A member of the RNA family "Small nucleolar RNA SNORA69" from Cnephaeus nilssonii, 118 nucleotides long. It is annotated as an H/ACA-box small nucleolar RNA. U69 is a member of the H/ACA class of small nucleolar RNAs (snoRNAs) which act as guides in the the modification of uridines to pseudouridines. The family's consensus secondary structure was predicted with PFOLD.
[Rfam]
RNA sequence: UUAGGGCUGCACUUAAUUUAUUAAUAUGUAUCCAUAAGUCCUGAAAGAAAAUCUUGUGUUGAUCAUUUUUGAUUUUGCCUUAUGAGGGUAAAAUCAUGACAGACUGACAUGGACAAUU
Numbered sequence: 001u002u003a004g005g006g007c008u009g010c011a012c013u014u015a016a017u018u019u020a021u022u023a024a025u026a027u028g029u030a031u032c033c034a035u036a037a038g039u040c041c042u043g044a045a046a047g048a049a050a051a052u053c054u055u056g057u058g059u060u061g062a063u064c065a066u067u068u069u070u071g072a073u074u075u076u077g078c079c080u081u082a083u084g085a086g087g088g089u090a091a092a093a094u095c096a097u098g099a100c101a102g103a104c105u106g107a108c109a110u111g112g113a114c115a116a117u118u
Stems, first nucleotide, its partner, number of pairs: 003042004016031002019028001053112001055111007063103002070096012